[Rfam]
RNA sequence: CCCAUACCCAUAUGUGUAGGACCUCAAAGGAUCACUAUUAAAUUUGGUACAGAUCUCUAAAAAAGUUAUCACAUAGUGUGGAACUUGACUUUUCUAGUUAUCUGUGUCAAAUUUAAUGGUGAUCCUUUGGGGUCCUACACACAUGGGUGUGGG
Dot-bracket structure: .((((((((((.(.((((((((((((((.(((.(((((((((((((((((((((..(((.(((((((((((((...)))))....)))))))).)))..))))))))))))))))))))).))).)))))))))))))).).)))))))))).